[Rfam]
RNA sequence: GGUCAUGAGUGCCAGUGCAAAACCCCGGUUUGCUGGCCGGCAACCCUCCGUCCGCGGCGGGGUGCCCCGGGUGAGGACCUGGUCACACGGGAAUGCCGCUGUGGCAAGCGCGGGCU
Numbered sequence: 001g002g003u004c005a006u007g008a009g010u011g012c013c014a015g016u017g018c019a020a021a022a023c024c025c026c027g028g029u030u031u032g033c034u035g036g037c038c039g040g041c042a043a044c045c046c047u048c049c050g051u052c053c054g055c056g057g058c059g060g061g062g063u064g065c066c067c068c069g070g071g072u073g074a075g076g077a078c079c080u081g082g083u084c085a086c087a088c089g090g091g092a093a094u095g096c097c098g099c100u101g102u103g104g105c106a107a108g109c110g111c112g113g114g115c116u
Base pairs, nucleotide, nucleotide: 001079002078003077004076009038011037012036013035014034015033016032021030022029039066040065041064044062045061046060048057049056082105083104084103085102086101087100090097091096
The record is a 116-nucleotide RNA from Pseudoglutamicibacter albus, which matches "SAM (S-adenosyl methionine) riboswitch aptamer" in Rfam. The match comes from Rfam's covariance-model search (108 bits). For this family Rfam cites "The aptamer core of SAM-IV riboswitches mimics the ligand-binding site of SAM-I riboswitches" (Weinberg et al., RNA, 2008).